[Rfam]
RNA sequence: CUUUCUUUCUCAACCACCGACCUGUGCCAGCUCUCCCGUCCACCUCUUUCGAGGGGUGUGUUCGGUUGUAGCGCUGGCAGUUCGUCCGCCACCAAGGAGCCAUCACAGUUCUUCCAUGAUGUCAAUUUCCGGACGACAGGUCGCAGAGAAAUGCUGGCGAUGCGCUGCGGAAGCUUGAGUUCGCCGCAAGGUUUGAGCUCAGUGGAUGUGCGUGUUGCCUGGGCGUCUGAUUCCUACUCCCUUAUGCUAGGCCGUCGGCCAUUGAUGCUUGGGAAUAACCCAGUCCUGCCUACAUAC
Numbered sequence: 001c002u003u004u005c006u007u008u009c010u011c012a013a014c015c016a017c018c019g020a021c022c023u024g025u026g027c028c029a030g031c032u033c034u035c036c037c038g039u040c041c042a043c044c045u046c047u048u049u050c051g052a053g054g055g056g057u058g059u060g061u062u063c064g065g066u067u068g069u070a071g072c073g074c075u076g077g078c079a080g081u082u083c084g085u086c087c088g089c090c091a092c093c094a095a096g097g098a099g100c101c102a103u104c105a106c107a108g109u110u111c112u113u114c115c116a117u118g119a120u121g122u123c124a125a126u127u128u129c130c131g132g133a134c135g136a137c138a139g140g141u142c143g144c145a146g147a148g149a150a151a152u153g154c155u156g157g158c159g160a161u162g163c164g165c166u167g168c169g170g171a172a173g174c175u176u177g178a179g180u181u182c183g184c185c186g187c188a189a190g191g192u193u194u195g196a197g198c199u200c201a202g203u204g205g206a207u208g209u210g211c212g213u214g215u216u217g218c219c220u221g222g223g224c225g226u227c228u229g230a231u232u233c234c235u236a237c238u239c240c241c242u243u244a245u246g247c248u249a250g251g252c253c254g255u256c257g258g259c260c261a262u263u264g265a266u267g268c269u270u271g272g273g274a275a276u277a278a279c280c281c282a283g284u285c286c287u288g289c290c291u292a293c294a295u296a297c
Stems, first nucleotide, its partner, number of pairs: 018143008026078005033071002035068001036065003041060002043056005086135001089132002096123002099120001101118001154217001156215001160213006176201008184191002222290003225285001227283003238274004246268002250260004
RNA: A. fumigatus sRNA Afu_309
Organism: Massarina eburnea